[Rfam]
RNA sequence: GGCACGCUUUCUGCUCAACGGUCUGCAACGGUAACCAACGGCGGCUACCGAUCCCCGACAAAGGCGUCGC
Numbered sequence: 001g002g003c004a005c006g007c008u009u010u011c012u013g014c015u016c017a018a019c020g021g022u023c024u025g026c027a028a029c030g031g032u033a034a035c036c037a038a039c040g041g042c043g044g045c046u047a048c049c050g051a052u053c054c055c056c057g058a059c060a061a062a063g064g065c066g067u068c069g070c
Stems, first nucleotide, its partner, number of pairs: 030049004035044002

narK RNA: a 70-nucleotide sequence from Stutzerimonas degradans.
By type it is a cis-regulatory element.